[Rfam]
Rfam assigns this 122-nucleotide sequence from Gottfriedia endophytica to the family "ylbH leader". Taxonomically the source falls in Gottfriedia (Bacteria, Bacillota, Caryophanales, Bacillaceae). Gene Ontology term of the family: regulation of gene expression. This family is a putative regulatory RNA structure that is found upstream of the ylbH gene in B. subtilis and related low GC Gram-positive bacteria.

RNA sequence: AUAAAAAAAACCCUGCUUUCGCAGGGCCCUUCUUAUAAAAGUGUACUAACACUUAAAAGAAGGCAAAGGGAGAGGAGAAACCGGAGGAAGAACUUAUGGGGAAACGUAAGUCUUCUCCGCGG
Numbered sequence: 001a002u003a004a005a006a007a008a009a010a011c012c013c014u015g016c017u018u019u020c021g022c023a024g025g026g027c028c029c030u031u032c033u034u035a036u037a038a039a040a041g042u043g044u045a046c047u048a049a050c051a052c053u054u055a056a057a058a059g060a061a062g063g064c065a066a067a068g069g070g071a072g073a074g075g076a077g078a079a080a081c082c083g084g085a086g087g088a089a090g091a092a093c094u095u096a097u098g099g100g101g102a103a104a105c106g107u108a109a110g111u112c113u114u115c116u117c118c119g120c121g122g
Stems, first nucleotide, its partner, number of pairs: 011026006027070005039054005082119004087115004092111005